[Rfam]
RNA: Streptococcus sRNA SpF59 (ldcC RNA)
Organism: Flavonifractor sp. An52
RNA sequence: UGACCAUCCUUUCACAAGGAUCAAGGCUACACGGACGGCCGGGUCAAAUGCCGA
Numbered sequence: 001u002g003a004c005c006a007u008c009c010u011u012u013c014a015c016a017a018g019g020a021u022c023a024a025g026g027c028u029a030c031a032c033g034g035a036c037g038g039c040c041g042g043g044u045c046a047a048a049u050g051c052c053g054a
Base pairs, nucleotide, nucleotide: 001046002045003044004043005042006021007020008019009018010017011016